[Rfam]
RNA sequence: AAAAAGGGCGCGUCACAAAGUCGGUCUUUAGACCUGACCAAUGUGUCAAAAGUUUUUAUUGAACUUUUGCGGUAUGGAUAUCAAGACAUAUCGAGCGCAUAAUUUUUUGAUUAUAUUGGAAGCUCGCUGUACUUUACUUUUGGCUUCGCU
Numbered sequence: 001a002a003a004a005a006g007g008g009c010g011c012g013u014c015a016c017a018a019a020g021u022c023g024g025u026c027u028u029u030a031g032a033c034c035u036g037a038c039c040a041a042u043g044u045g046u047c048a049a050a051a052g053u054u055u056u057u058a059u060u061g062a063a064c065u066u067u068u069g070c071g072g073u074a075u076g077g078a079u080a081u082c083a084a085g086a087c088a089u090a091u092c093g094a095g096c097g098c099a100u101a102a103u104u105u106u107u108u109g110a111u112u113a114u115a116u117u118g119g120a121a122g123c124u125c126g127c128u129g130u131a132c133u134u135u136a137c138u139u140u141u142g143g144c145u146u147c148g149c150u
Stems, first nucleotide, its partner, number of pairs: 008098004014045004047069009070093007117148004122144003126140001129137003
The record is a 150-nucleotide sequence from Rhizopus delemar, which matches "U11 spliceosomal RNA" in Rfam.
The literature on the family includes a 1988 paper in Proc Natl Acad Sci U S A by Montzka and Steitz, "Additional low-abundance human small nuclear ribonucleoproteins: U11, U12, etc".
Its Rfam clan is "U1 clan".
Pairs were carried over by alignment from the consensus structure, which is taken from published work.
Taxonomically the source falls in Rhizopus delemar (Eukaryota, Opisthokonta, Mucorineae, Rhizopus).
By type it is a spliceosomal small nuclear RNA.